A member of the RNA family "Small nucleolar RNA Z157/R69/R10" from Zea mays, 90 nucleotides long. A search with the family's covariance model found it, with a score of 81 bits. A reference for the family is Chen et al. (2003), "The high diversity of snoRNAs in plants: identification and comparative study of 120 snoRNA genes from Oryza sativa", Nucleic Acids Res. Its Rfam clan is "SNORD52 clan". By type it is a C/D-box small nucleolar RNA. NCBI's taxonomy places the organism under Eukaryota, Streptophytina, Petrosaviidae, Panicoideae, Zea.

RNA sequence: AUAGGAGCGGUGAUGAUUUUGUGGACUAGAGUUUCCGAUACUACCACGGUAGUAUUUGACGACCAAACCCUUGGCUGUCUGAGCUCCUAA
Numbered sequence: 001a002u003a004g005g006a007g008c009g010g011u012g013a014u015g016a017u018u019u020u021g022u023g024g025a026c027u028a029g030a031g032u033u034u035c036c037g038a039u040a041c042u043a044c045c046a047c048g049g050u051a052g053u054a055u056u057u058g059a060c061g062a063c064c065a066a067a068c069c070c071u072u073g074g075c076u077g078u079c080u081g082a083g084c085u086c087c088u089a090a
Base pairs, nucleotide, nucleotide: 002089003088004087005086006085007084008083032061034059035058039054040053041052042051043050044049